[Rfam]
RNA sequence: AUAUAAAAUCGUUAAGUGAGGCUCCUAUACGGAUAUAUGCUGAUGCCCGGAAACAUCGAGAGAUGCCAAUGGGUUAACAGAUUUUACCGUUCUAAGGUUUAAUCUAAUGCAGCUGGUAUGUCCUAUGCCGUAUAGUGCUAAAUCCCAACGAAUGUGUUGAGUU
Numbered sequence: 001a002u003a004u005a006a007a008a009u010c011g012u013u014a015a016g017u018g019a020g021g022c023u024c025c026u027a028u029a030c031g032g033a034u035a036u037a038u039g040c041u042g043a044u045g046c047c048c049g050g051a052a053a054c055a056u057c058g059a060g061a062g063a064u065g066c067c068a069a070u071g072g073g074u075u076a077a078c079a080g081a082u083u084u085u086a087c088c089g090u091u092c093u094a095a096g097g098u099u100u101a102a103u104c105u106a107a108u109g110c111a112g113c114u115g116g117u118a119u120g121u122c123c124u125a126u127g128c129c130g131u132a133u134a135g136u137g138c139u140a141a142a143u144c145c146c147a148a149c150g151a152a153u154g155u156g157u158u159g160a161g162u163u
Stems, first nucleotide, its partner, number of pairs: 006158002010154001011149002013095001016144001020139003025135008039113004045074005054065004080104004086098003115123002